[Rfam]
RNA sequence: CCCUGGGCCGUUGGGGAGUAGCUUCCGGCCAACCGGCCGGGACCGCGUCAACACACUCGCACCGUCAGGUGCGUGGCGCGGUCAGCGGACCACCAUCCGCCU
Numbered sequence: 001c002c003c004u005g006g007g008c009c010g011u012u013g014g015g016g017a018g019u020a021g022c023u024u025c026c027g028g029c030c031a032a033c034c035g036g037c038c039g040g041g042a043c044c045g046c047g048u049c050a051a052c053a054c055a056c057u058c059g060c061a062c063c064g065u066c067a068g069g070u071g072c073g074u075g076g077c078g079c080g081g082u083c084a085g086c087g088g089a090c091c092a093c094c095a096u097c098c099g100c101c102u
Stems, first nucleotide, its partner, number of pairs: 026039003041083010058073005
Manganese Mn2+ riboswitch aptamer (yybP-ykoY): a 102-nucleotide RNA from Thalassobaculum fulvum. The pairing is the family consensus, mapped onto this sequence. Lineage of the source: Bacteria > Alphaproteobacteria > Rhodospirillales > Thalassobaculaceae > Thalassobaculum.